[Rfam]
Shown here is a 65-nucleotide sequence from Pseudomonas sp. HPB0071, a member of the family "Pseudomonas sRNA P26". About the family: This small RNA (sRNA) was computationally identified in the genome of the opportunistic pathogen Pseudomonas aeruginosa and its expression verified by northern blot analysis. P26 is conserved across many Gammaproteobacteria species and appears to be consistently located between the DNA directed RNA polymerase (beta subunit) and 50S ribosomal protein L7/L12 genes.
RNA sequence: GACAUUGCGUCUACAGCCUGAGCGUUAAAGUUCGGCUGAUGGCUGGUGGCAAUAGCCACCGGCCU
Numbered sequence: 001g002a003c004a005u006u007g008c009g010u011c012u013a014c015a016g017c018c019u020g021a022g023c024g025u026u027a028a029a030g031u032u033c034g035g036c037u038g039a040u041g042g043c044u045g046g047u048g049g050c051a052a053u054a055g056c057c058a059c060c061g062g063c064c065u
Stems, first nucleotide, its partner, number of pairs: 014038005022031002041064010